[Rfam]
RNA: Small nucleolar RNA Z103
RNA sequence: UUGGAUGUGAUGAUACUUUCCCCAAAUGAUCGACGCUGAUUAUACUAUGCUGGUGUGUGUUUAUCACGCUUUUGUCUGAUCCAC
Numbered sequence: 001u002u003g004g005a006u007g008u009g010a011u012g013a014u015a016c017u018u019u020c021c022c023c024a025a026a027u028g029a030u031c032g033a034c035g036c037u038g039a040u041u042a043u044a045c046u047a048u049g050c051u052g053g054u055g056u057g058u059g060u061u062u063a064u065c066a067c068g069c070u071u072u073u074g075u076c077u078g079a080u081c082c083a084c
Stems, first nucleotide, its partner, number of pairs: 002083004